The family of this 95-nucleotide sequence from Harpegnathos saltator is "mir-210 microRNA precursor family". For this family Rfam cites "The developmental miRNA profiles of zebrafish as determined by small RNA cloning" (Chen et al., Genes Dev, 2005). Pairs were carried over by alignment from the consensus structure, which was predicted with WAR. Its family is annotated with RISC complex and miRNA-mediated post-transcriptional gene silencing in the Gene Ontology. NCBI's taxonomy places the organism under Eukaryota, Opisthokonta, Hymenoptera, Formicidae, Harpegnathos.
RNA sequence: UUGGACCCCAACACAGCUGCUGGCCACUGCACAAGAUUAGAUAUAACACUCUUGUGCGUGUGACAGCGACUAUUAUGGGGCUUCCAUGAUACAUC
Numbered sequence: 001u002u003g004g005a006c007c008c009c010a011a012c013a014c015a016g017c018u019g020c021u022g023g024c025c026a027c028u029g030c031a032c033a034a035g036a037u038u039a040g041a042u043a044u045a046a047c048a049c050u051c052u053u054g055u056g057c058g059u060g061u062g063a064c065a066g067c068g069a070c071u072a073u074u075a076u077g078g079g080g081c082u083u084c085c086a087u088g089a090u091a092c093a094u095c
Stems, first nucleotide, its partner, number of pairs: 006080005015071002018068005024062001025060002028058006035051002